[Rfam]
RNA sequence: GGUUCGGGAGCUAUCCGGUGGGACGGGUGGCAGGUAUGGAACCGCCCCCCUUAUCGCCAGGCGUUGCGCAGUGGGCCCCGACACUGCGCCGC
Dot-bracket structure: (((((....((((((((......)))))))).......)))))...................((.((.(((((........))))).)).))